[Rfam]
RNA sequence: UAGUGAUUUCAGCUCUUUUAGUAUUUGUCCAGCAGGUUUCCCGCGUGACGGGAAGCCUCC
Number, nucleotide and partner (000 for none) at each position: 001u000002a000003g000004u000005g000006a000007u000008u000009u000010c000011a000012g000013c000014u000015c000016u000017u000018u000019u000020a000021g000022u000023a000024u000025u000026u000027g000028u000029c000030c000031a000032g000033c000034a000035g057036g056037u055038u054039u053040c052041c051042c050043g049044c000045g000046u000047g000048a000049c043050g042051g041052g040053a039054a038055g037056c036057c035058u000059c000060c000

U7 small nuclear RNA: a 60-nucleotide RNA sequence from Chauna torquata. Rfam's curators write: Animal histone pre-mRNAs are spliced by a different mechanism than nuclear pre-mRNAs and self-splicing introns. This processing involves the U7 snRNP, which contains only one RNA species: U7. The 5' end of U7 RNA is thought to base-pair to a conserved spacer element downstream of the cleavage site in histone pre-mRNA. This family contains a number of annotated U7 pseudogenes. Pairs were carried over by alignment from the consensus structure, which was predicted with PFOLD. The source organism's lineage runs through Eukaryota, Opisthokonta, Deuterostomia, Anhimidae and Chauna.